[Rfam]
A member of the RNA family "Ribosomal protein L10 leader" from Priestia filamentosa, 155 nucleotides long. The family's consensus secondary structure was predicted with CMfinder. It scores 79 bits against the family's covariance model.
RNA sequence: UAAAAUUAAACAUUAUUGCCAAAGACAGUAGGUGCUUACUAAAGCUUAAUUUCCUACCGAGGUGUAUGAUAUAAAGCAGCGUUGCACGUCUGUACGCUCGUUUUAGAAAACCCUCUAUGUCUUAUUUACCACAUAGAGGGUCUUCUUAUGUUGCA
Numbered sequence: 001u002a003a004a005a006u007u008a009a010a011c012a013u014u015a016u017u018g019c020c021a022a023a024g025a026c027a028g029u030a031g032g033u034g035c036u037u038a039c040u041a042a043a044g045c046u047u048a049a050u051u052u053c054c055u056a057c058c059g060a061g062g063u064g065u066a067u068g069a070u071a072u073a074a075a076g077c078a079g080c081g082u083u084g085c086a087c088g089u090c091u092g093u094a095c096g097c098u099c100g101u102u103u104u105a106g107a108a109a110a111c112c113c114u115c116u117a118u119g120u121c122u123u124a125u126u127u128a129c130c131a132c133a134u135a136g137a138g139g140g141u142c143u144u145c146u147u148a149u150g151u152u153g154c155a
Base pairs, nucleotide, nucleotide: 028057029056030055031054032053034045035044036043111140112139113138114137115136116135117134118133119132120131